Annotation:
A member of the RNA family "mir-320 microRNA precursor family" from Propithecus coquereli, 76 nucleotides long. Lineage of the source: Eukaryota > Opisthokonta > Craniata > Indriidae > Propithecus.

[Rfam]
RNA sequence: GCCAUACAAGUCCUUCUCUUCCUGGUUCUUCCUGGAGUCAGGAAAAGCAGGGUUGAGAGAGCAAAAAAAAUAAAAA
Numbered sequence: 001g002c003c004a005u006a007c008a009a010g011u012c013c014u015u016c017u018c019u020u021c022c023u024g025g026u027u028c029u030u031c032c033u034g035g036a037g038u039c040a041g042g043a044a045a046a047g048c049a050g051g052g053u054u055g056a057g058a059g060a061g062c063a064a065a066a067a068a069a070a071u072a073a074a075a076a
Base pairs, nucleotide, nucleotide: 014059015058016057017056018055021052022051023050025048029044030043031042032041033040034039